[Rfam]
RNA sequence: CGGCGACGCUCUGGAAAGCAGUCUGUUCGCAAGAGCAGGCUCACCGAAGGAGCAACCAUGCGUGCCUUAAGGGCGCAUGGGAAAUCUCUCAGGUUCUCGGACAGAGGGGGCGCG
Numbered sequence: 001c002g003g004c005g006a007c008g009c010u011c012u013g014g015a016a017a018g019c020a021g022u023c024u025g026u027u028c029g030c031a032a033g034a035g036c037a038g039g040c041u042c043a044c045c046g047a048a049g050g051a052g053c054a055a056c057c058a059u060g061c062g063u064g065c066c067u068u069a070a071g072g073g074c075g076c077a078u079g080g081g082a083a084a085u086c087u088c089u090c091a092g093g094u095u096c097u098c099g100g101a102c103a104g105a106g107g108g109g110g111c112g113c114g
Base pairs, nucleotide, nucleotide: 007108009106010105011104012103013102020041021040022039023038024037025036043094044093045092046090047089050088051087052086056081057080
RNA: Glycine riboswitch aptamer